The family of this 373-nucleotide RNA sequence from Paucilactobacillus oligofermentans is "Bacterial RNase P class B". Gene Ontology terms of the family: dimeric ribonuclease P complex, ribonuclease P activity and tRNA processing. The literature on the family includes a 1998 paper in Annu Rev Biochem by Frank and Pace, "Ribonuclease P: unity and diversity in a tRNA processing ribozyme". The organism belongs to Paucilactobacillus oligofermentans, within Bacteria.
[Rfam]
Nucleotides: 373
Base pairs, nucleotide, nucleotide: 004373005372006371007369008321009320010319011318012317013316014315016035017034018033019032020031021030040367041366042365044364045363046362047361048360049234050233051232052231053230054071055070056069057068058067059066077229078228079227081225082103083102084101085100086099087098104120105118106117107116108115109114121224122223124163125162126161127160133153134152135151139148140147141146170222171221172218173217174216187206188205189204190203191202192201193200194199238254239253240252258288259287260286261285262284263283264282290305291304292303293302294301325349326348327347328346329345330344331343332342
Number, partner (000 for none) and nucleotide at each position: 001000a002000a003000u004373u005372u006371c007369g008321g009320g010319u011318g012317a013316u014315u015000g016035c017034g018033g019032c020031u021030g022000a023000c024000u025000u026000a027000u028000g029000u030021c031020a032019g033018u034017u035016g036000a037000g038000g039000a040367a041366a042365g043000u044364c045363c046362a047361u048360g049234c050233u051232c052231g053230c054071a055070c056069a057068g058067a059066c060000u061000g062000a063000g064000a065000u066059g067058u068057u069056u070055g071054u072000a073000g074000u075000g076000u077229u078228c079227g080000u081225g082103c083102u084101c085100g086099g087098u088000g089000a090000a091000a092000a093000a094000a095000u096000a097000a098087g099086c100085c101084g102083g103082g104120g105118a106117a107116c108115c109114a110000g111000u112000a113000a114109u115108g116107g117106u118105u119000a120104c121224g122223g123000c124163g125162a126161g127160u128000a129000a130000a131000a132000c133153g134152g135151c136000u137000a138000a139148g140147g141146c142000u143000u144000c145000g146141g147140c148139u149000a150000u151135g152134c153133c154000c155000g156000a157000g158000u159000a160127a161126c162125u163124c164000u165000g166000a167000a168000a169000a170222g171221u172218g173217c174216c175000a176000c177000a178000g179000u180000g181000a182000c183000g184000a185000a186000g187206c188205a189204a190203u191202a192201u193200u194199g195000g196000a197000a198000a199194c200193g201192a202191u203190a204189u205188u206187g207000a208000u209000g210000g211000a212000a213000c214000g215000c216174g217173g218172u219000a220000a221171a222170c223122c224121c225081c226000u227079c228078g229077a230053g231052c232051g233050g234049g235000a236000a237000a238254c239253c240252c241000a242000a243000a244000c245000u246000u247000u248000g249000g250000u251000a252240g253239g254238g255000g256000a257000g258288c259287u260286u261285c262284a263283c264282a265000u266000a267000a268000g269000g270000a271000a272000u273000u274000g275000a276000a277000c278000u279000g280000a281000u282264u283263g284262u285261g286260g287259g288258g289000g290305g291304a292303g293302a294301c295000a296000g297000u298000a299000a300000u301294g302293u303292c304291u305290c306000g307000a308000g309000a310000u311000a312000g313000a314000u315014g316013a317012u318011u319010g320009c321008c322000a323000c324000u325349g326348u327347a328346u329345g330344a331343u332342u333000g334000a335000g336000c337000c338000u339000g340000a341000a342332a343331a344330u345329c346328a347327u348326a349325c350000u351000u352000c353000g354000a355000c356000a357000c358000a359000a360048c361047a362046u363045g364044g365042c366041u367040u368000a369007c370000a371006g372005a373004a